This 133-nucleotide RNA sequence from Clostridium homopropionicum belongs to the Rfam family "c-di-AMP riboswitch aptamer (ydaO/yuaA leader)". Rfam 15.1 lists 7,607 matches to the family in 2,262 species. Lineage of the source: Bacteria > Bacillati > Clostridia > Eubacteriales > Clostridium homopropionicum.
RNA sequence: AUAUUAAUUACGCUGAAUCAAUUUGAGCGGGAGAACCAAUUUUUAGGGGUGAAUCUUAUUGUUAUGAUAAGUAGGGUUAAUUUCUUCGACCCGAAUCCGUCAGCUAAUCUCGUAAGCGUUGAAGGGAAGUUGU
Numbered sequence: 001a002u003a004u005u006a007a008u009u010a011c012g013c014u015g016a017a018u019c020a021a022u023u024u025g026a027g028c029g030g031g032a033g034a035a036c037c038a039a040u041u042u043u044u045a046g047g048g049g050u051g052a053a054u055c056u057u058a059u060u061g062u063u064a065u066g067a068u069a070a071g072u073a074g075g076g077u078u079a080a081u082u083u084c085u086u087c088g089a090c091c092c093g094a095a096u097c098c099g100u101c102a103g104c105u106a107a108u109c110u111c112g113u114a115a116g117c118g119u120u121g122a123a124g125g126g127a128a129g130u131u132g133u
Base pairs, nucleotide, nucleotide: 011118012117013116014115018026019025020024027113028112029111030110031109032108037046047098048097049096055071056070057069058068074092075091076090077089